[Rfam]
RNA: tRNA
Organism: Anaerostipes rhamnosivorans
RNA sequence: GCAUCAGUAACUCAGUGGAUAGAGUGACAGCCUCCGAAGUUGUUGGUCGCAGGUUCGACUCCUGCCUGGUGCA
Numbered sequence: 001g002c003a004u005c006a007g008u009a010a011c012u013c014a015g016u017g018g019a020u021a022g023a024g025u026g027a028c029a030g031c032c033u034c035c036g037a038a039g040u041u042g043u044u045g046g047u048c049g050c051a052g053g054u055u056c057g058a059c060u061c062c063u064g065c066c067u068g069g070u071g072c073a
Base pairs, nucleotide, nucleotide: 001072002071003070004069005068006067007066010025011024012023013022027043028042029041030040031039049065050064051063052062053061